Rfam assigns this 259-nucleotide sequence from Staphylococcus epidermidis to the family "Staphylococcus sRNA 35 (srn_0335)".
The literature on the family includes a 2016 paper in MBio by Carroll et al., "Genome-wide Annotation, Identification, and Global Transcriptomic Analysis of Regulatory or Small RNA Gene Expression in Staphylococcus aureus".
Rfam classes the family as a small RNA.
The base pairs follow the family's consensus structure, which was predicted with RNAfold.
[Rfam]
Nucleotides: 259
Base pairs, nucleotide, nucleotide: 002015005012017070018069024067025066028063029062032059033058035056036055037054040052042050043049044048072145073144076141077140081136082135087107088106089105090104091103092102093101094100112132113131114130115129116128117127118126119123146166147165148164149163150162151161152160153159168253169252171250172249173248174247175246177244182238185235186234188233189232190231191230203229204228205227206226207225210221211220212219213218
Number, partner (000 for none) and nucleotide at each position: 001000u002015u003000g004000a005012a006000u007000u008000u009000u010000u011000a012005u013000a014000a015002a016000u017070g018069g019000u020000u021000u022000c023000a024067g025066u026000g027000g028063g029062g030000c031000a032059u033058a034000a035056g036055u037054u038000a039000u040052a041000a042050g043049c044048g045000c046000g047000u048044u049043g050042u051000c052040u053000a054037a055036a056035c057000a058033u059032a060000c061000u062029c063028c064000g065000a066025a067024c068000c069018c070017c071000a072145a073144c074000u075000u076141g077140c078000c079000u080000u081136g082135u083000c084000u085000g086000u087107a088106g089105a090104a091103u092102u093101u094100c095000u096000g097000u098000u099000u100094g101093a102092a103091a104090u105089u106088c107087u108000c109000u110000a111000u112132g113131u114130u115129g116128g117127g118126g119123c120000c121000c122000c123119g124000a125000a126118c127117c128116c129115c130114a131113a132112c133000u134000u135082g136081c137000c138000u139000u140077g141076u142000c143000u144073g145072u146166a147165g148164a149163a150162u151161u152160u153159c154000u155000g156000u157000u158000u159153g160152a161151a162150a163149u164148u165147c166146u167000c168253u169252a170000u171250g172249u173248u174247g175246g176000g177244g178000c179000c180000c181000c182238g183000a184000a185235c186234c187000c188233c189232a190231a191230c192000u193000u194000g195000c196000u197000u198000u199000g200000u201000c202000u203229g204228u205227a206226g207225a208000a209000u210221u211220u212219u213218u214000g215000u216000u217000u218213g219212a220211a221210a222000u223000u224000c225207u226206c227205u228204a229203u230191g231190u232189u233188g234186g235185g236000g237000c238182c239000c240000c241000g242000a243000a244177c245000c246175c247174c248173a249172a250171c251000u252169u253168g254000c255000u256000u257000u258000g259000u

Rfam's curators put it in the seed alignment.